[Rfam]
RNA sequence: UAUAGCCAAAAAUAGUAAAAGGACUCAGAGUAGGUUCACUCACAACCCUCACAUCCCCAACUACUGGGUCAUAAAUUCCCCCAAAAAUCAUCGCCUUCGCCACAAACAAUAAAGCAGCGACUCCGAGGAAAAUCAAAUGAUGACCCAAAAUAAACCCCAAUUUUUUUGGCUCGCUCCA
Numbered sequence: 001u002a003u004a005g006c007c008a009a010a011a012a013u014a015g016u017a018a019a020a021g022g023a024c025u026c027a028g029a030g031u032a033g034g035u036u037c038a039c040u041c042a043c044a045a046c047c048c049u050c051a052c053a054u055c056c057c058c059a060a061c062u063a064c065u066g067g068g069u070c071a072u073a074a075a076u077u078c079c080c081c082c083a084a085a086a087a088u089c090a091u092c093g094c095c096u097u098c099g100c101c102a103c104a105a106a107c108a109a110u111a112a113a114g115c116a117g118c119g120a121c122u123c124c125g126a127g128g129a130a131a132a133u134c135a136a137a138u139g140a141u142g143a144c145c146c147a148a149a150a151u152a153a154a155c156c157c158c159a160a161u162u163u164u165u166u167u168g169g170c171u172c173g174c175u176c177c178a
Base pairs, nucleotide, nucleotide: 136175138173139172140171144169145168147166148165
RNA: Antisense RNA which regulates isiA expression